[Rfam]
RNA sequence: CAGCAAGGCUUCCAGCAGGUGGGGCCUGGUGUGGCCACCACCAUUCCUGCAGCGCUUGCCACAGCAACUCUGGGACCGUUUGAGGCCUCUCCCUGCACUCAUGGGGAAGGGUUAUGGACAUCCCGGACAACC
Numbered sequence: 001c002a003g004c005a006a007g008g009c010u011u012c013c014a015g016c017a018g019g020u021g022g023g024g025c026c027u028g029g030u031g032u033g034g035c036c037a038c039c040a041c042c043a044u045u046c047c048u049g050c051a052g053c054g055c056u057u058g059c060c061a062c063a064g065c066a067a068c069u070c071u072g073g074g075a076c077c078g079u080u081u082g083a084g085g086c087c088u089c090u091c092c093c094u095g096c097a098c099u100c101a102u103g104g105g106g107a108a109g110g111g112u113u114a115u116g117g118a119c120a121u122c123c124c125g126g127a128c129a130a131c132c
Base pairs, nucleotide, nucleotide: 003059004058005057006056007055009054018042019041023036024035025034026033071125072124073123074122075121086111087110088109090107091106093104094103095102
Rfam assigns this 132-nucleotide RNA sequence from Geococcyx californianus to the family "Small nucleolar RNA SNORA9". Its family is annotated with RNA processing and nucleolus in the Gene Ontology. The family has 36 seed sequences and 1,202 matches in Rfam 15.1. NCBI's taxonomy places the organism under Eukaryota, Eumetazoa, Gnathostomata, Aves, Geococcyx. Pairs were carried over by alignment from the consensus structure, which was predicted with PFOLD. By type it is an H/ACA-box small nucleolar RNA. Rfam's curators write: ACA9 is a member of the H/ACA class of snoRNA that guide the sites of modification of uridines to pseudouridines.